[Rfam]
RNA sequence: UCACGGGUUUGCACCCGUGGCUACAACAUGCCGUCCCUUCGGGACU
Numbered sequence: 001u002c003a004c005g006g007g008u009u010u011g012c013a014c015c016c017g018u019g020g021c022u023a024c025a026a027c028a029u030g031c032c033g034u035c036c037c038u039u040c041g042g043g044a045c046u
Stems, first nucleotide, its partner, number of pairs: 001020008033045005

The family of this 46-nucleotide RNA from Novipirellula galeiformis is "Acido-Lenti-1 RNA".
The family's RNA type in Rfam is small RNA.
The organism belongs to Novipirellula, within Bacteria.
A search with the family's covariance model found it, with a score of 44 bits.